[Rfam]
RNA sequence: AACGAAAGUAGAGGCUGCAGUCGAAAAGAGUACAACGUAGGAGCGGAUAGCGAUGAAUACGUUCGAAAGGGUCGAUUGCCGAAAGUGAGAAAGUGUCGAUUUUUUCACUUGGGGUGUCGUUGAACAAGCGAUACACUGUCAUCCGCAAAGGAUGUUGCGCUACGUAAAUC
Number, nucleotide and partner (000 for none) at each position: 001a000002a000003c000004g000005a000006a165007a000008g163009u162010a161011g160012a000013g000014g000015c000016u000017g079018c078019a077020g076021u075022c074023g073024a072025a000026a000027a000028g000029a000030g000031u000032a000033c000034a063035a062036c061037g060038u059039a058040g000041g000042a000043g000044c000045g000046g000047a000048u000049a000050g000051c000052g000053a000054u000055g000056a000057a000058u039059a038060c037061g036062u035063u034064c000065g000066a000067a000068a000069g000070g000071g000072u024073c023074g022075a021076u020077u019078g018079c017080c000081g000082a000083a110084a109085g108086u107087g106088a105089g104090a103091a102092a101093g100094u099095g000096u000097c000098g000099a094100u093101u092102u091103u090104u089105u088106c087107a086108c085109u084110u083111g137112g136113g000114g134115u133116g132117u131118c130119g129120u128121u127122g000123a000124a000125c000126a000127a121128g120129c119130g118131a117132u116133a115134c114135a000136c112137u111138g000139u000140c154141a153142u152143c151144c150145g000146c000147a000148a000149a000150g144151g143152a142153u141154g140155u000156u000157g000158c000159g000160c011161u010162a009163c008164g000165u006166a000167a000168a000169u000170c000
A member of the RNA family "Lysine riboswitch aptamer" from Planococcaceae bacterium Storch 2/2-2, 170 nucleotides long. Its family is annotated with lysine biosynthetic process in the Gene Ontology. Rfam describes the family as follows. Riboswitches are metabolite binding domains within certain messenger RNAs that serve as precision sensors for their corresponding targets. Allosteric rearrangement of mRNA structure is mediated by ligand binding, and this results in modulation of gene expression. NCBI's taxonomy places the organism under Bacteria, Bacillati, Bacilli, Caryophanales, Caryophanaceae.